[Rfam]
RNA sequence: AAUCAUACCUAGCAGGGGAGAUACCAUGAUCAUCAAAGUAGUUUUCCCAGGGUGAGGCUCAUCUAUUGCACUUUGGAUGUGCUGACCCCUGUGAUUUCCCCAAAUAUGGGAAAAUCAACUGCCUAAGGGGGGGACUGUGUUUGUGGUUUCCCCUG
Numbered sequence: 001a002a003u004c005a006u007a008c009c010u011a012g013c014a015g016g017g018g019a020g021a022u023a024c025c026a027u028g029a030u031c032a033u034c035a036a037a038g039u040a041g042u043u044u045u046c047c048c049a050g051g052g053u054g055a056g057g058c059u060c061a062u063c064u065a066u067u068g069c070a071c072u073u074u075g076g077a078u079g080u081g082c083u084g085a086c087c088c089c090u091g092u093g094a095u096u097u098c099c100c101c102a103a104a105u106a107u108g109g110g111a112a113a114a115u116c117a118a119c120u121g122c123c124u125a126a127g128g129g130g131g132g133g134a135c136u137g138u139g140u141u142u143g144u145g146g147u148u149u150c151c152c153c154u155g
Stems, first nucleotide, its partner, number of pairs: 012122004016048006023042002026039002049090004054086001056083003060079005092117003095113003099109002128154005134149001138145002